[Rfam]
RNA sequence: UCCCCAACAAGAUCCUGGUGCUGAGUGCUGACUCCCAACUCCAGCAUCAGUGAUUUUGUUGAAGA
Numbered sequence: 001u002c003c004c005c006a007a008c009a010a011g012a013u014c015c016u017g018g019u020g021c022u023g024a025g026u027g028c029u030g031a032c033u034c035c036c037a038a039c040u041c042c043a044g045c046a047u048c049a050g051u052g053a054u055u056u057u058g059u060u061g062a063a064g065a
Base pairs, nucleotide, nucleotide: 006060007059008058009057010056012054013053014052015050016049017048018047019046020045021044022043023042
Record summary: This 65-nucleotide sequence from Pipistrellus kuhlii belongs to the Rfam family "mir-338 microRNA precursor family". On this family, see Meiri et al., Nucleic Acids Res 2010: "Discovery of microRNAs and other small RNAs in solid tumors". Rfam 15.1 lists 1,231 matches to the family in 632 species.